[Rfam]
RNA sequence: UGAACUUUAAAAUGCAAGUUCAUAGAUCUUUAAGAGACUAACACAGAAAGCUAAAGUAAUUCUCCAUAAAACCCAGAGACGAGAUUGUAAAACUCCUCUGUAGAUCCUGUCUGGAGUCACAGCU
Numbered sequence: 001u002g003a004a005c006u007u008u009a010a011a012a013u014g015c016a017a018g019u020u021c022a023u024a025g026a027u028c029u030u031u032a033a034g035a036g037a038c039u040a041a042c043a044c045a046g047a048a049a050g051c052u053a054a055a056g057u058a059a060u061u062c063u064c065c066a067u068a069a070a071a072c073c074c075a076g077a078g079a080c081g082a083g084a085u086u087g088u089a090a091a092a093c094u095c096c097u098c099u100g101u102a103g104a105u106c107c108u109g110u111c112u113g114g115a116g117u118c119a120c121a122g123c124u
Base pairs, nucleotide, nucleotide: 003052005050006049007048008047014042017039019037021034062116063115064114065113066112073103075101077099078098079097081095082094083093085092086091
Dot-bracket structure: ..(.((((.....(..(.(.(............)..).)..)....)))).).........(((((......(.(.(((.(((.((....))))).))).).)........)))))........